[Rfam]
RNA: MIR400 microRNA precursor family
Organism: Microthlaspi erraticum
RNA sequence: GGAAGAUUGUUUAUGAGAGUAUUAUAAGUCACUACAUUUGGUAAAACAAGUGUUUGCUUCCCAAACGAAGUGACUUAUAAUAUUCUCAUGAAUGGAUUUUGCA
Numbered sequence: 001g002g003a004a005g006a007u008u009g010u011u012u013a014u015g016a017g018a019g020u021a022u023u024a025u026a027a028g029u030c031a032c033u034a035c036a037u038u039u040g041g042u043a044a045a046a047c048a049a050g051u052g053u054u055u056g057c058u059u060c061c062c063a064a065a066c067g068a069a070g071u072g073a074c075u076u077a078u079a080a081u082a083u084u085c086u087c088a089u090g091a092a093u094g095g096a097u098u099u100u101g102c103a
Base pairs, nucleotide, nucleotide: 003100004099005098006097007096008095010092011091012090013089014088015087016086017085018084020082021081022080023079024078025077026076027075028074029073030072031071032070033069035067037065038064039063040062041061043059044058047056048055049054